[Rfam]
RNA: Early nodulin 40
RNA sequence: AUGGUGAUGAUUUGGCAGGAAUCCAUACAUGGAUCUUGAAAAGCAUGGAAACUGGAGCGAAGGACUUCGCACCUUCCUCCAACAUCAACAUUUCCUACACUGAUAGCCAUAUACUCUGCUAAUCUCUUUUUAGUGCCUUGAUAUUUGCAUCAAUGUAUUUACUGAGCUUAGAAGGGAAUUCGGUUGUAAGUGUAGCAAACCGGCAAGUCACAGAACGGCAAUGGGAGACUCCUUACGAGUCUU
Dot-bracket structure: .....................................................(((.....................)))..........((.(.............(.((((.......................................................................)))).)....).))............................(((((.....)))))..
Numbered sequence: 001a002u003g004g005u006g007a008u009g010a011u012u013u014g015g016c017a018g019g020a021a022u023c024c025a026u027a028c029a030u031g032g033a034u035c036u037u038g039a040a041a042a043g044c045a046u047g048g049a050a051a052c053u054g055g056a057g058c059g060a061a062g063g064a065c066u067u068c069g070c071a072c073c074u075u076c077c078u079c080c081a082a083c084a085u086c087a088a089c090a091u092u093u094c095c096u097a098c099a100c101u102g103a104u105a106g107c108c109a110u111a112u113a114c115u116c117u118g119c120u121a122a123u124c125u126c127u128u129u130u131u132a133g134u135g136c137c138u139u140g141a142u143a144u145u146u147g148c149a150u151c152a153a154u155g156u157a158u159u160u161a162c163u164g165a166g167c168u169u170a171g172a173a174g175g176g177a178a179u180u181c182g183g184u185u186g187u188a189a190g191u192g193u194a195g196c197a198a199a200c201c202g203g204c205a206a207g208u209c210a211c212a213g214a215a216c217g218g219c220a221a222u223g224g225g226a227g228a229c230u231c232c233u234u235a236c237g238a239g240u241c242u243u
Stems, first nucleotide, its partner, number of pairs: 054080003091198002094195001108190001110188004227241005